[Rfam]
RNA sequence: CGGAAGUAUCCGCCUAAUCCACGCAGUCAGGAGGCGUGGAGCCGGGGGCCCAAAAGUCCAGUUUUUCUGGGCUAGGGGUGAAUCAGCACGUUUGUGUUGUAGGGCGAACUUCCACGCCCGAACCCGUCAGCUAACCCGGUAGGCAUUGGUGGAAGACCCA
Numbered sequence: 001c002g003g004a005a006g007u008a009u010c011c012g013c014c015u016a017a018u019c020c021a022c023g024c025a026g027u028c029a030g031g032a033g034g035c036g037u038g039g040a041g042c043c044g045g046g047g048g049c050c051c052a053a054a055a056g057u058c059c060a061g062u063u064u065u066u067c068u069g070g071g072c073u074a075g076g077g078g079u080g081a082a083u084c085a086g087c088a089c090g091u092u093u094g095u096g097u098u099g100u101a102g103g104g105c106g107a108a109c110u111u112c113c114a115c116g117c118c119c120g121a122a123c124c125c126g127u128c129a130g131c132u133a134a135c136c137c138g139g140u141a142g143g144c145a146u147u148g149g150u151g152g153a154a155g156a157c158c159c160a
Stems, first nucleotide, its partner, number of pairs: 012144003018040007041140006051075001076125003084099004102119004

This 160-nucleotide sequence from Sinosporangium siamense belongs to the Rfam family "c-di-AMP riboswitch aptamer (ydaO/yuaA leader)". The organism belongs to Sinosporangium, within Bacteria.